[Rfam]
RNA sequence: AACGUGUCAAAGUCUGGUAACUCCACCACCGUUGGCGGAAUGUUAAAAAGCCAAUGGGGUACGAGUUUCCUACCAUUGACGCGUU
Numbered sequence: 001a002a003c004g005u006g007u008c009a010a011a012g013u014c015u016g017g018u019a020a021c022u023c024c025a026c027c028a029c030c031g032u033u034g035g036c037g038g039a040a041u042g043u044u045a046a047a048a049a050g051c052c053a054a055u056g057g058g059g060u061a062c063g064a065g066u067u068u069c070c071u072a073c074c075a076u077u078g079a080c081g082c083g084u085u
Base pairs, nucleotide, nucleotide: 003083004082005081006080007079008078009077010076012074016070017069019067020066021065022064023063027059029057030056031055032054033053034052035051036050

A member of the RNA family "mir-2765 microRNA precursor family" from Nasonia vitripennis, 85 nucleotides long. The base pairs follow the family's consensus structure, which was predicted with RNAalifold. Its family is annotated with miRNA-mediated post-transcriptional gene silencing and RISC complex in the Gene Ontology.